Rfam assigns this 174-nucleotide sequence from Clostridiales bacterium CHKCI006 to the family "Lysine riboswitch aptamer". From the family's description: Riboswitches are metabolite binding domains within certain messenger RNAs that serve as precision sensors for their corresponding targets.
RNA sequence: UAACACGAUAGAGGAUGCGAUUGAUAAAGAGCUAUUUUCGUAGGGACGCAACUUGGAAAUAGGGAGGGAUCGUCGCCGAAAGGGAAUCGAUUUGCGUGUCGAUUUGCCUUGGGCAUAGCAAGAACAUUGCUAUGACUGUCAUUACAGAUAUGGUGAUGAAGAGCUAUCAUUGAA
Numbered sequence: 001u002a003a004c005a006c007g008a009u010a011g012a013g014g015a016u017g018c019g020a021u022u023g024a025u026a027a028a029g030a031g032c033u034a035u036u037u038u039c040g041u042a043g044g045g046a047c048g049c050a051a052c053u054u055g056g057a058a059a060u061a062g063g064g065a066g067g068g069a070u071c072g073u074c075g076c077c078g079a080a081a082g083g084g085a086a087u088c089g090a091u092u093u094g095c096g097u098g099u100c101g102a103u104u105u106g107c108c109u110u111g112g113g114c115a116u117a118g119c120a121a122g123a124a125c126a127u128u129g130c131u132a133u134g135a136c137u138g139u140c141a142u143u144a145c146a147g148a149u150a151u152g153g154u155g156a157u158g159a160a161g162a163g164c165u166a167u168c169a170u171u172g173a174a
Base pairs, nucleotide, nucleotide: 007168008167009166010165011164017076018075019074020073021072023071024070025069032062033061034060035059036058037057038056039055080110081109082108083107084105085104086103087102088101089100090099091098111137112136114134115133116132117131118130119129120128121127139159140158141157142156143155144154145153

A search with the family's covariance model found it, with a score of 84 bits.